Lysine riboswitch aptamer: a 196-nucleotide sequence from Lonsdalea quercina. A search with the family's covariance model found it, with a score of 98 bits.
RNA sequence: CAAGCCAGAAGAGGUGCGUCGCCCAGGUAAGGUGUCGGAGGAGCCGUUUUCCGAAGAAGAUACCCGAGGGGGAGCGUCGCCGAGGUGAGAUCAGCAACGGCAUUGAUUUCAUCGACCACAGGGGCUGAAUCCCUUGGGUUGUCACCGGCUCAUUCUGCACGCAGGAUGUUCAGCAAGGUGGAGCGCUUCUGGGUGU
Number, nucleotide and partner (000 for none) at each position: 001c000002a000003a000004g000005c000006c191007a190008g189009a188010a187011g186012a000013g000014g000015u000016g080017c079018g078019u000020c076021g075022c074023c000024c072025a000026g000027g000028u000029a000030a000031g064032g063033u062034g061035u060036c059037g000038g000039a000040g000041g000042a000043g000044c000045c000046g000047u000048u000049u000050u000051c000052c000053g000054a000055a000056g000057a000058a000059g036060a035061u034062a033063c032064c031065c000066g000067a000068g000069g000070g000071g000072g024073a000074g022075c021076g020077u000078c018079g017080c016081c000082g000083a000084g113085g112086u111087g110088a109089g108090a107091u106092c105093a104094g103095c000096a000097a000098c000099g000100g000101c000102a000103u094104u093105g092106a091107u090108u089109u088110c087111a086112u085113c084114g140115a139116c138117c137118a000119c136120a135121g134122g133123g132124g131125c000126u000127g000128a000129a000130u000131c124132c123133c122134u121135u120136g119137g117138g116139u115140u114141g000142u181143c180144a179145c178146c177147g000148g000149c000150u000151c000152a000153u000154u000155c000156u000157g000158c000159a000160c000161g000162c000163a000164g000165g000166a000167u000168g000169u000170u000171c000172a000173g000174c000175a000176a000177g146178g145179u144180g143181g142182a000183g000184c000185g000186c011187u010188u009189c008190u007191g006192g000193g000194u000195g000196u000